[Rfam]
Nucleotides: 030
Base pairs, nucleotide, nucleotide: 011025012024013023014022015021
Number, partner (000 for none) and nucleotide at each position: 001000g002000u003000u004000a005000c006000a007000g008000a009000c010000g011025g012024a013023c014022c015021c016000u017000c018000g019000u020000g021015g022014g023013g024012u025011u026000g027000a028000a029000g030000c